[Rfam]
Nucleotides: 086
Stems, first nucleotide, its partner, number of pairs: 001086003005082003009078001012027006028046006048061005063077004
Number, partner (000 for none) and nucleotide at each position: 001086g002085c003084c004000c005082a006081g007080a008000u009078g010000a011000g012027c013026u014025u015024c016023g017022g018000u019000g020000g021000u022017c023016c024015g025014g026013g027012g028046c029045g030044c031043a032042g033041g034000c035000u036000u037000c038000a039000a040000a041033c042032c043031u044030g045029u046028g047000g048061g049060c050059g051058g052057g053000g054000a055000g056000a057052c058051u059050c060049g061048c062000a063077g064076u065075g066074g067000u068000u069000c070000g071000a072000u073000u074066c075065c076064a077063c078009c079000u080007u081006c082005u083000a084003g085002g086001c
Notes: Rfam assigns this 86-nucleotide RNA from Oikopleura dioica to the family "Selenocysteine transfer RNA". Gene Ontology term of the family: triplet codon-amino acid adaptor activity. The match comes from Rfam's covariance-model search (73 bits).